RNA sequence: UGGUUUCCUGAGGCUCCCUGGCUGUUACUCUGUCCCAGCCCCUCCUGGCCUGAGGUGCAAAGCCUGAGUCCCAGUAAAUUCUGUGGGGUCCUGACCC
Numbered sequence: 001u002g003g004u005u006u007c008c009u010g011a012g013g014c015u016c017c018c019u020g021g022c023u024g025u026u027a028c029u030c031u032g033u034c035c036c037a038g039c040c041c042c043u044c045c046u047g048g049c050c051u052g053a054g055g056u057g058c059a060a061a062g063c064c065u066g067a068g069u070c071c072c073a074g075u076a077a078a079u080u081c082u083g084u085g086g087g088g089u090c091c092u093g094a095c096c097c
Stems, first nucleotide, its partner, number of pairs: 002096003007088003011082003015078001021075004027069004032064001034062001039055002042052001
RNA: mir-8813 microRNA precursor family